This 165-nucleotide part of an RNA from Mixia osmundae belongs to the Rfam family "Eukaryotic small subunit ribosomal RNA".
Gene Ontology terms of the family: ribosome and structural constituent of ribosome.
Clan: SSU clan.
Taxonomically the source falls in Mixia osmundae (Eukaryota, Basidiomycota, Mixiomycetes, Mixiales).
RNA sequence: CCGCCCGUCGCUACUACCGAUUGAAUGGCUUAGUGAGGUCUCCGGAUCGGCUUUGCGGAGCGGGCGACUGCACUGCUUGGCUGAAAAGUUGAACGAACUUGGUCAUUUAGAGGAAGUAAAAGUCGUAACAAGGUUUUCGUAGGUGAACCUGCGAAAGGAUCAUUA
Numbered sequence: 001c002c003g004c005c006c007g008u009c010g011c012u013a014c015u016a017c018c019g020a021u022u023g024a025a026u027g028g029c030u031u032a033g034u035g036a037g038g039u040c041u042c043c044g045g046a047u048c049g050g051c052u053u054u055g056c057g058g059a060g061c062g063g064g065c066g067a068c069u070g071c072a073c074u075g076c077u078u079g080g081c082u083g084a085a086a087a088g089u090u091g092a093a094c095g096a097a098c099u100u101g102g103u104c105a106u107u108u109a110g111a112g113g114a115a116g117u118a119a120a121a122g123u124c125g126u127a128a129c130a131a132g133g134u135u136u137u138c139g140u141a142g143g144u145g146a147a148c149c150u151g152c153g154a155a156a157g158g159a160u161c162a163u164u165a
Stems, first nucleotide, its partner, number of pairs: 001132001003129001006125002009122001012118004017113002021109001023108008032099003037094001039092002043088001047084006055076003060071003134157010